[Rfam]
RNA sequence: GGGCCGGCUCUAGCCCAGCGGUUCCUUCGGUCUCUUCUGAUUCACGUUCCCCUGCCCAGCAGGGGUUCGAGCCCGCGGGCACUCCUGGCCCAUUU
Numbered sequence: 001g002g003g004c005c006g007g008c009u010c011u012a013g014c015c016c017a018g019c020g021g022u023u024c025c026u027u028c029g030g031u032c033u034c035u036u037c038u039g040a041u042u043c044a045c046g047u048u049c050c051c052c053u054g055c056c057c058a059g060c061a062g063g064g065g066u067u068c069g070a071g072c073c074c075g076c077g078g079g080c081a082c083u084c085c086u087g088g089c090c091c092a093u094u095u
Base pairs, nucleotide, nucleotide: 002090003089004088005087006086007085013080014079015078016077018076019075020074021073026071027070028069029068030067